[Rfam]
RNA sequence: CAUGCGGUGCCUGGCGCCAGGGUAGUUCAGAUACCCCGCGACCUGGUAGCGGCAUGACUUAACGAGGU
Number, nucleotide and partner (000 for none) at each position: 001c056002a055003u054004g053005c052006g000007g050008u049009g000010c000011c045012u000013g043014g042015c040016g039017c038018c000019a000020g000021g000022g000023u000024a000025g000026u000027u000028c000029a000030g000031a000032u000033a000034c000035c000036c000037c000038g017039c016040g015041a000042c014043c013044u000045g011046g000047u000048a000049g008050c007051g000052g005053c004054a003055u002056g001057a000058c000059u000060u000061a000062a000063c000064g000065a000066g000067g000068u000
RNA: L31-Gammaproteobacteria ribosomal protein leader